[Rfam]
The record is an 85-nucleotide RNA sequence from Phoenix dactylifera, which matches "small nucleolar RNA snoR114" in Rfam. It scores 46 bits against the family's covariance model.
RNA sequence: GAGCAAUGAGGAUGACAGCGCAUCCUGUGAUGCCGGGAGCAUCACGACAUUUGGAUUAUCGGAUGACCUCAGCGCCUCUGAGCUC
Numbered sequence: 001g002a003g004c005a006a007u008g009a010g011g012a013u014g015a016c017a018g019c020g021c022a023u024c025c026u027g028u029g030a031u032g033c034c035g036g037g038a039g040c041a042u043c044a045c046g047a048c049a050u051u052u053g054g055a056u057u058a059u060c061g062g063a064u065g066a067c068c069u070c071a072g073c074g075c076c077u078c079u080g081a082g083c084u085c
Stems, first nucleotide, its partner, number of pairs: 001085004